[Rfam]
RNA sequence: GCCGGUCCUCGGUAGUGGCUCCCGGGAUUCGAGUCCCGGGGGCUUCGAUCGAAGACCGGC
Numbered sequence: 001g002c003c004g005g006u007c008c009u010c011g012g013u014a015g016u017g018g019c020u021c022c023c024g025g026g027a028u029u030c031g032a033g034u035c036c037c038g039g040g041g042g043c044u045u046c047g048a049u050c051g052a053a054g055a056c057c058g059g060c
Base pairs, nucleotide, nucleotide: 001060002059003058004057005056006055007054009052010051011050012049013048017044018043019042020041021040022039023038024037025036026035027034028033

Actino-pnp RNA: a 60-nucleotide RNA sequence from Pseudonocardia sp. CNS-004.